Glycine riboswitch aptamer: a 94-nucleotide RNA sequence from Ureibacillus terrenus.
[Rfam]
RNA sequence: AUGAUUGUGCGGGGAGAGAACGUGUUAUACGUCGCCGAAGGAGCAAGUAGCGGAGAGCUAUGAAUCUCUCAGGCAAAAAGACUCGUACGGGACG
Numbered sequence: 001a002u003g004a005u006u007g008u009g010c011g012g013g014g015a016g017a018g019a020a021c022g023u024g025u026u027a028u029a030c031g032u033c034g035c036c037g038a039a040g041g042a043g044c045a046a047g048u049a050g051c052g053g054a055g056a057g058c059u060a061u062g063a064a065u066c067u068c069u070c071a072g073g074c075a076a077a078a079a080g081a082c083u084c085g086u087a088c089g090g091g092a093c094g
Base pairs, nucleotide, nucleotide: 006089007088008087009086010085011084012083013082020032021031022030023029034074035073036072037070038069041068042067043066047061048060049059050058